Rfam assigns this 60-nucleotide sequence from Cyprinus carpio to the family "mir-7552 microRNA precursor family".
[Rfam]
RNA sequence: UUACAAUUAAAGGAUAUUUCUUGAAACGACACUAACAGAAAUAUCUCUUAAUUGUUUGGU
Numbered sequence: 001u002u003a004c005a006a007u008u009a010a011a012g013g014a015u016a017u018u019u020c021u022u023g024a025a026a027c028g029a030c031a032c033u034a035a036c037a038g039a040a041a042u043a044u045c046u047c048u049u050a051a052u053u054g055u056u057u058g059g060u
Base pairs, nucleotide, nucleotide: 003055004054005053006052007051008050009049010048012046013045014044015043016042017041018040019039020038021037
Gene Ontology terms of the family: RISC complex and miRNA-mediated post-transcriptional gene silencing. A search with the family's covariance model found it, with a score of 67 bits. NCBI's taxonomy places the organism under Eukaryota, Opisthokonta, Vertebrata, Cypriniphysae, Cyprinus carpio. Rfam 15.1 lists 220 matches to the family in 102 species.